[Rfam]
RNA sequence: GAGAACUAACAUCUUUAAAAGUCGAAUGAUGGGGCAACGCCUUGAAAGGCUUUCUUUAAUACUCCGAUAGGCGUGUAUAUGAAUAAGCAUCGAAACGUCUAAAGCUCGGUGAAGUCGCGUGAGAACUACCCUAAGGAAAAAUCCUUGGGAAACCUAUCCAGAGGUGGAUGGUGUAGUCUAUAGUGCGGAAGUCUAAAAA
Dot-bracket structure: .................((((((.......((((.....))))....))))))((((......(((((((((((.(..(((......)))..).)))))))....))))......(((((....((((((((..............)))....(((((((....))))))).))))).....)))))))))........